A member of the RNA family "c-di-GMP-I-GGC riboswitch aptamer" from Ethanoligenens harbinense, 85 nucleotides long. NCBI's taxonomy places the organism under Bacteria, Bacillati, Eubacteriales, Ethanoligenens, Ethanoligenens harbinense. The family's consensus secondary structure is taken from published work. The match comes from Rfam's covariance-model search (71 bits).
[Rfam]
RNA sequence: AAAUGUAUCGGCAAACCCGUCGAAAGGCGGGGACGCAAAGCCACGGGUCUAAUGUUUCAUCACGAUGAUAGCCGGGUUGCCUUUU
Numbered sequence: 001a002a003a004u005g006u007a008u009c010g011g012c013a014a015a016c017c018c019g020u021c022g023a024a025a026g027g028c029g030g031g032g033a034c035g036c037a038a039a040g041c042c043a044c045g046g047g048u049c050u051a052a053u054g055u056u057u058c059a060u061c062a063c064g065a066u067g068a069u070a071g072c073c074g075g076g077u078u079g080c081c082u083u084u085u
Stems, first nucleotide, its partner, number of pairs: 001085001003082001011036002016031006034071001039078004044074003047069003